Source information
ZMP/ZTP riboswitch aptamer (pfl RNA motif): an 89-nucleotide RNA from Cellulomonas hominis. Rfam links the family to the GO terms regulation of purine nucleotide biosynthetic process and one-carbon metabolic process.

RNA sequence: UGGGCGGGUCGCGACUGGCGCACAGGUGGGUCACCACCGGGGAGCGACGUAGCUCCCGCGACGUCGGGUCGGACGCCUGGGCCCCGCGG
Numbered sequence: 001u002g003g004g005c006g007g008g009u010c011g012c013g014a015c016u017g018g019c020g021c022a023c024a025g026g027u028g029g030g031u032c033a034c035c036a037c038c039g040g041g042g043a044g045c046g047a048c049g050u051a052g053c054u055c056c057c058g059c060g061a062c063g064u065c066g067g068g069u070c071g072g073a074c075g076c077c078u079g080g081g082c083c084c085c086g087c088g089g
Stems, first nucleotide, its partner, number of pairs: 003053001006050001008048005015041002017077004026037004066084005